Shown here is a 122-nucleotide RNA from Mycobacterium conspicuum, a member of the family "Glycine riboswitch aptamer". This family represents the bacterial glycine riboswitch. The match comes from Rfam's covariance-model search (41 bits). Rfam links the family to the GO term glycine biosynthetic process.

[Rfam]
RNA sequence: CGAUGCCUCUGGAAAGCGGCGUGGACGGAUACCGGUCCACGCCCGCCGAUGGGGAAAGGCGCAGGCAUACGGCGCUGAAUCUCUCAGGCGCCCGAUUGGCGGGUGAAGACAGAGGGAGAGGG
Dot-bracket structure: ...(.((((((......(((((((((........))))))))).(((((..(((...(((((.........)))))....))))).)))....................)))))).).....
Numbered sequence: 001c002g003a004u005g006c007c008u009c010u011g012g013a014a015a016g017c018g019g020c021g022u023g024g025a026c027g028g029a030u031a032c033c034g035g036u037c038c039a040c041g042c043c044c045g046c047c048g049a050u051g052g053g054g055a056a057a058g059g060c061g062c063a064g065g066c067a068u069a070c071g072g073c074g075c076u077g078a079a080u081c082u083c084u085c086a087g088g089c090g091c092c093c094g095a096u097u098g099g100c101g102g103g104u105g106a107a108g109a110c111a112g113a114g115g116g117a118g119a120g121g122g
Stems, first nucleotide, its partner, number of pairs: 004117001006115006018043009045089003048085002052083003058076005